[Rfam]
This 404-nucleotide RNA sequence from Methylorubrum extorquens belongs to the Rfam family "Bacterial RNase P class A".
By type it is a ribozyme.
About the family: Ribonuclease P (RNase P) is a ubiquitous endoribonuclease, found in archaea, bacteria and eukarya as well as chloroplasts and mitochondria.
The source organism's lineage runs through Bacteria, Pseudomonadota, Alphaproteobacteria, Methylobacteriaceae and Methylorubrum extorquens.
RNA sequence: UCAGCCGGCCGGGCAGCCGCUCCGUCGUCAGACGGGGAGGAAAGUCCGGGCUCCAUGGAGAGGCGGUGCCGGAUAACCUCCGGCGGGGGCGACCCCAGGGACAGUGCCACAGAGAGCAGACCGCCUUGCAAGGCCCGUCCUUCGCAAGGUCAGGGUGAAAGGGUGCGGUAAGAGCGCACCGCGGACGCGGCAACGCGGACGGCACGGCAAACCCCACCGGGAGCAAAACCGAAUAGGGGCGACACGCCUUCUCCGCGAGGAGGGGGCAGGCCCUCUCUCCAGGCUCGUCGCCCGGGUUGGUUGCUCGAGGCGGCCGGUAACGGACGUCCCAGAGGAAUGGCUGCUACGUCCGUGAGUUCAUCUCGCGGGCCCUACAGAACCCGGCUUACAGGCCGGCUGAUCCA
Numbered sequence: 001u002c003a004g005c006c007g008g009c010c011g012g013g014c015a016g017c018c019g020c021u022c023c024g025u026c027g028u029c030a031g032a033c034g035g036g037g038a039g040g041a042a043a044g045u046c047c048g049g050g051c052u053c054c055a056u057g058g059a060g061a062g063g064c065g066g067u068g069c070c071g072g073a074u075a076a077c078c079u080c081c082g083g084c085g086g087g088g089g090c091g092a093c094c095c096c097a098g099g100g101a102c103a104g105u106g107c108c109a110c111a112g113a114g115a116g117c118a119g120a121c122c123g124c125c126u127u128g129c130a131a132g133g134c135c136c137g138u139c140c141u142u143c144g145c146a147a148g149g150u151c152a153g154g155g156u157g158a159a160a161g162g163g164u165g166c167g168g169u170a171a172g173a174g175c176g177c178a179c180c181g182c183g184g185a186c187g188c189g190g191c192a193a194c195g196c197g198g199a200c201g202g203c204a205c206g207g208c209a210a211a212c213c214c215c216a217c218c219g220g221g222a223g224c225a226a227a228a229c230c231g232a233a234u235a236g237g238g239g240c241g242a243c244a245c246g247c248c249u250u251c252u253c254c255g256c257g258a259g260g261a262g263g264g265g266g267c268a269g270g271c272c273c274u275c276u277c278u279c280c281a282g283g284c285u286c287g288u289c290g291c292c293c294g295g296g297u298u299g300g301u302u303g304c305u306c307g308a309g310g311c312g313g314c315c316g317g318u319a320a321c322g323g324a325c326g327u328c329c330c331a332g333a334g335g336a337a338u339g340g341c342u343g344c345u346a347c348g349u350c351c352g353u354g355a356g357u358u359c360a361u362c363u364c365g366c367g368g369g370c371c372c373u374a375c376a377g378a379a380c381c382c383g384g385c386u387u388a389c390a391g392g393c394c395g396g397c398u399g400a401u402c403c404a
Stems, first nucleotide, its partner, number of pairs: 001400010011389001012345007020037007042387003046384005051223004060276001062274001064219005069083005084098001085096004099214002104212002106208003121154002123150007131142003162180006181203001182201002186197004227302004237293006269285004309328004314323003